A member of the RNA family "Bacterial RNase P class A" from Mesosutterella multiformis, 306 nucleotides long. The match comes from Rfam's covariance-model search (217 bits). It is annotated as a ribozyme. The base pairs follow the family's consensus structure, which is taken from published work.
RNA sequence: GAAGCCGAUCAGACAGUCGUGGACGGGACCUGUCCCGCCCGAGGAAAGUCCGGACUUCAUAGGACACCGUAGCAGCUAACGGCUGCCCGCCGCGAGGCGAGGAUUAGAGCAACAGAGACGAGCCGAUCAAGUUCGGGUGAAACGGGCAAUCUCUACGGGAAGCAACACUAAAUAGGCAGCCGCUGACCCUGUCCGGCGAGGCUGCGGGUAAGUGGCUUGAGCCCGGUCGCGAGACCGGGUCUAGACGAAUGACUGUCACCGGGGCAACCCGGGCAACAAAAUCCGGCUUACCGAUGGACUUCGUGC
Numbered sequence: 001g002a003a004g005c006c007g008a009u010c011a012g013a014c015a016g017u018c019g020u021g022g023a024c025g026g027g028a029c030c031u032g033u034c035c036c037g038c039c040c041g042a043g044g045a046a047a048g049u050c051c052g053g054a055c056u057u058c059a060u061a062g063g064a065c066a067c068c069g070u071a072g073c074a075g076c077u078a079a080c081g082g083c084u085g086c087c088c089g090c091c092g093c094g095a096g097g098c099g100a101g102g103a104u105u106a107g108a109g110c111a112a113c114a115g116a117g118a119c120g121a122g123c124c125g126a127u128c129a130a131g132u133u134c135g136g137g138u139g140a141a142a143c144g145g146g147c148a149a150u151c152u153c154u155a156c157g158g159g160a161a162g163c164a165a166c167a168c169u170a171a172a173u174a175g176g177c178a179g180c181c182g183c184u185g186a187c188c189c190u191g192u193c194c195g196g197c198g199a200g201g202c203u204g205c206g207g208g209u210a211a212g213u214g215g216c217u218u219g220a221g222c223c224c225g226g227u228c229g230c231g232a233g234a235c236c237g238g239g240u241c242u243a244g245a246c247g248a249a250u251g252a253c254u255g256u257c258a259c260c261g262g263g264g265c266a267a268c269c270c271g272g273g274c275a276a277c278a279a280a281a282u283c284c285g286g287c288u289u290a291c292c293g294a295u296g297g298a299c300u301u302c303g304u305g306c
Base pairs, nucleotide, nucleotide: 001302002301003300004299006297008295009294010293012257013256014255015254016253017252018251020041021040022039024037025036026035027034028033046289047288048287050286051285052284053283054282055162056161057160058159062194063193064192065191067158068157069156070155071154072086073085074084075083076082087101088099089098090097091096102153103152107151108150109147110146123136124135125134126133166214167213168212169211176205177204178203179202180201181200187198188196189195221240222239223238224237225236226235227234228233